[Rfam]
RNA: Small nucleolar RNA SNORA5
Organism: Nothocercus julius
RNA sequence: UGCAGCUGAGUCAAAUUCGGUCCUCACCUGCCCCGUGCUGGGGACCGGCCAAACAGCUGCCACAGCAGCACCUGUAGCUCAUGGGCCCCACUGUCCCUGUCCUUGGACCUUGGGGAUAAAUAAAUGCUACGGACACCC
Numbered sequence: 001u002g003c004a005g006c007u008g009a010g011u012c013a014a015a016u017u018c019g020g021u022c023c024u025c026a027c028c029u030g031c032c033c034c035g036u037g038c039u040g041g042g043g044a045c046c047g048g049c050c051a052a053a054c055a056g057c058u059g060c061c062a063c064a065g066c067a068g069c070a071c072c073u074g075u076a077g078c079u080c081a082u083g084g085g086c087c088c089c090a091c092u093g094u095c096c097c098u099g100u101c102c103u104u105g106g107a108c109c110u111u112g113g114g115g116a117u118a119a120a121u122a123a124a125u126g127c128u129a130c131g132g133a134c135a136c137c138c
Stems, first nucleotide, its partner, number of pairs: 002060004018047009028037001074130005079124001086115005